[Rfam]
RNA sequence: GGAACUGUUGCGCGGAACAUAAUUGAUGAAGGUGAAGCCGCGCGCCUGAUCGAUACAGUGAAACAGCGGGUUCCAGUCGAACAUGUUCAGCAUGAAGGUCGGUAGCGAAUUGGCUAGGAACAUCUUGCCCGAAGCGAUCAUGUUGGCGCGUUG
Numbered sequence: 001g002g003a004a005c006u007g008u009u010g011c012g013c014g015g016a017a018c019a020u021a022a023u024u025g026a027u028g029a030a031g032g033u034g035a036a037g038c039c040g041c042g043c044g045c046c047u048g049a050u051c052g053a054u055a056c057a058g059u060g061a062a063a064c065a066g067c068g069g070g071u072u073c074c075a076g077u078c079g080a081a082c083a084u085g086u087u088c089a090g091c092a093u094g095a096a097g098g099u100c101g102g103u104a105g106c107g108a109a110u111u112g113g114c115u116a117g118g119a120a121c122a123u124c125u126u127g128c129c130c131g132a133a134g135c136g137a138u139c140a141u142g143u144u145g146g147c148g149c150g151u152u153g
Base pairs, nucleotide, nucleotide: 004033006032008030009029013025014024015023040054041052042051064153065152066151067150068149070082071081072080073079087146088145089144090143091142092141093140094139099133100131101130102129103127104126105125107123110119111118
Dot-bracket structure: ...(.(.((...(((.......)))...)).))......(((........)).).........(((((.((((.....))))....((((((((....(((((((.(..((......))...).))).))).).....))))))))..)))))
Rfam assigns this 153-nucleotide sequence from Thalassovita gelatinovora to the family "Ruegeria cis2 sRNA". The base pairs follow the family's consensus structure, which was predicted with RNAfold. Its family is annotated with regulation of gene expression in the Gene Ontology. It scores 88 bits against the family's covariance model. The organism belongs to Thalassovita, within Bacteria. The family's RNA type in Rfam is small RNA.